This 88-nucleotide RNA from Peptoclostridium litorale belongs to the Rfam family "c-di-GMP-I riboswitch aptamer". Pairs were carried over by alignment from the consensus structure, which is taken from published work. The organism belongs to Peptoclostridium litorale, within Bacteria.

RNA sequence: UUUUGAAAAAGGCAAACUUGCCAAAAGGCAAGGACGCAAAGCUUAGAGUCUAAAGCAUUUAAAAUGCUACGAUUGUCUGGCUGCCAUA
Numbered sequence: 001u002u003u004u005g006a007a008a009a010a011g012g013c014a015a016a017c018u019u020g021c022c023a024a025a026a027g028g029c030a031a032g033g034a035c036g037c038a039a040a041g042c043u044u045a046g047a048g049u050c051u052a053a054a055g056c057a058u059u060u061a062a063a064a065u066g067c068u069a070c071g072a073u074u075g076u077c078u079g080g081c082u083g084c085c086a087u088a
Stems, first nucleotide, its partner, number of pairs: 012037002017032006040082004045078003048073003055067004